[Rfam]
The record is a 157-nucleotide sequence from Bifidobacterium breve, which matches "M-box riboswitch aptamer (ykoK leader)" in Rfam. Its family is annotated with response to magnesium ion and regulation of gene expression in the Gene Ontology. For this family Rfam cites "New RNA motifs suggest an expanded scope for riboswitches in bacterial genetic control" (Barrick et al., Proc Natl Acad Sci U S A, 2004).
RNA sequence: UGGGAGCGUCGGUAGGCGAGGCUACCGCAGGGAUAUGGGUUGCUGCCGCUAACAGUGGAGACACUGCAUGCUGGUCAACAGUUCUUGUCGGAUCAAGGCAUGAACUAAUGCAAUUCCACCGCCCUGCGAUGCUGAAGCUUGAACGAUGGCUCGAAUC
Numbered sequence: 001u002g003g004g005a006g007c008g009u010c011g012g013u014a015g016g017c018g019a020g021g022c023u024a025c026c027g028c029a030g031g032g033a034u035a036u037g038g039g040u041u042g043c044u045g046c047c048g049c050u051a052a053c054a055g056u057g058g059a060g061a062c063a064c065u066g067c068a069u070g071c072u073g074g075u076c077a078a079c080a081g082u083u084c085u086u087g088u089c090g091g092a093u094c095a096a097g098g099c100a101u102g103a104a105c106u107a108a109u110g111c112a113a114u115u116c117c118a119c120c121g122c123c124c125u126g127c128g129a130u131g132c133u134g135a136a137g138c139u140u141g142a143a144c145g146a147u148g149g150c151u152c153g154a155a156u157c
Stems, first nucleotide, its partner, number of pairs: 006152001008150003011144001013096001015139003020133003026128007039114005046073001048071002054065004081105004087099003